U1 spliceosomal RNA: a 163-nucleotide sequence from Terrapene triunguis. Clan: U1 clan. A search with the family's covariance model found it, with a score of 132 bits.
RNA sequence: AUACUUACUUGGCAAGGGAGAUACCAUGAUCAUGAAGAUGGUUUUCCCAUGGGGAGACUCAUCCAUUGCACUGUGGGUGUGCUGACCCCUGCUAUUUCCCAAAUGCUGGAAACUCAACUGCAUAAUUUGUGGUAGCGGGGGACUGCAUUUGUGCUUUCCCCUG
Numbered sequence: 001a002u003a004c005u006u007a008c009u010u011g012g013c014a015a016g017g018g019a020g021a022u023a024c025c026a027u028g029a030u031c032a033u034g035a036a037g038a039u040g041g042u043u044u045u046c047c048c049a050u051g052g053g054g055a056g057a058c059u060c061a062u063c064c065a066u067u068g069c070a071c072u073g074u075g076g077g078u079g080u081g082c083u084g085a086c087c088c089c090u091g092c093u094a095u096u097u098c099c100c101a102a103a104u105g106c107u108g109g110a111a112a113c114u115c116a117a118c119u120g121c122a123u124a125a126u127u128u129g130u131g132g133u134a135g136c137g138g139g140g141g142a143c144u145g146c147a148u149u150u151g152u153g154c155u156u157u158c159c160c161c162u163g
Base pairs, nucleotide, nucleotide: 012121013120014119016048017047018046019045020044021043023042024041025040026039027038049090051088052087054086056083058081060079061078062077063076064075094114095112096111097110098109099108137162138161139160140159141158142157145154146153147152